[Rfam]
RNA sequence: AAACUUUAUAUAAACAUCCCACAUAUAUGCUAGAGGAUAUGGCUCUAGUGUCUCUACCCGACGCCGUAAAUGUCGGACUAUGCGGGAAAGCUUGCUACGG
Numbered sequence: 001a002a003a004c005u006u007u008a009u010a011u012a013a014a015c016a017u018c019c020c021a022c023a024u025a026u027a028u029g030c031u032a033g034a035g036g037a038u039a040u041g042g043c044u045c046u047a048g049u050g051u052c053u054c055u056a057c058c059c060g061a062c063g064c065c066g067u068a069a070a071u072g073u074c075g076g077a078c079u080a081u082g083c084g085g086g087a088a089a090g091c092u093u094g095c096u097a098c099g100g
Stems, first nucleotide, its partner, number of pairs: 018086003022082004029049007058076006
RNA: Purine riboswitch aptamer
Organism: Ureibacillus endophyticus